Gammaprotebacteria rimP leader: a 102-nucleotide sequence from Xenorhabdus szentirmaii. Pairs were carried over by alignment from the consensus structure, which is taken from published work. By type it is a cis-regulatory leader. Taxonomically the source falls in Xenorhabdus szentirmaii (Bacteria, Pseudomonadati, Enterobacterales, Morganellaceae). Rfam links the family to the GO term regulation of gene expression. The match comes from Rfam's covariance-model search (91 bits).

RNA sequence: AGACCGCAGGCAGUAAAUAGGGUCCAGUUGCAUAAAGCCCCGAUUCUCGGGGUUUUUUGUUAUUUGACAGCAGAACUACUGGGCUAAUAUAGCCCUUUUUUU
Numbered sequence: 001a002g003a004c005c006g007c008a009g010g011c012a013g014u015a016a017a018u019a020g021g022g023u024c025c026a027g028u029u030g031c032a033u034a035a036a037g038c039c040c041c042g043a044u045u046c047u048c049g050g051g052g053u054u055u056u057u058u059g060u061u062a063u064u065u066g067a068c069a070g071c072a073g074a075a076c077u078a079c080u081g082g083g084c085u086a087a088u089a090u091a092g093c094c095c096u097u098u099u100u101u102u
Base pairs, nucleotide, nucleotide: 034056035055036054037053038052039051040050041049042048081095082094083093084092